[Rfam]
RNA: Glutamine riboswitch aptamer (glnA leader)
RNA sequence: AUCGUUUGGCUCAUUGAGUUGGAAGUAAGGUAACUGAAGAAACGCACU
Numbered sequence: 001a002u003c004g005u006u007u008g009g010c011u012c013a014u015u016g017a018g019u020u021g022g023a024a025g026u027a028a029g030g031u032a033a034c035u036g037a038a039g040a041a042a043c044g045c046a047c048u
Stems, first nucleotide, its partner, number of pairs: 003044005009019004022045001028035002